[Rfam]
RNA sequence: GUCGGCUACGGGGACAUGGUCCCGACUACCAUCGGUGGGAAGAUUGUCGGCUCCCUCUGCGCCAUCGCUGGCGUGCUGACCAUUGCCUUGCCGGUGCCUGUCAUCGUCUCCAAC
Numbered sequence: 001g002u003c004g005g006c007u008a009c010g011g012g013g014a015c016a017u018g019g020u021c022c023c024g025a026c027u028a029c030c031a032u033c034g035g036u037g038g039g040a041a042g043a044u045u046g047u048c049g050g051c052u053c054c055c056u057c058u059g060c061g062c063c064a065u066c067g068c069u070g071g072c073g074u075g076c077u078g079a080c081c082a083u084u085g086c087c088u089u090g091c092c093g094g095u096g097c098c099u100g101u102c103a104u105c106g107u108c109u110c111c112a113a114c
Stems, first nucleotide, its partner, number of pairs: 001114002004111002008107004013102004018097001021094001037077002040074001049063003
The family of this 114-nucleotide RNA sequence from Pleuronectes platessa is "Potassium channel RNA editing signal".
Pairs were carried over by alignment from the consensus structure, which is taken from published work.
It is annotated as a cis-regulatory element.
Lineage of the source: Eukaryota > Opisthokonta > Chordata > Craniata > Pleuronectes.
The match comes from Rfam's covariance-model search (111 bits).
The family has 85 seed sequences and 14,095 matches in Rfam 15.1.
Gene Ontology term of the family: adenosine to inosine editing.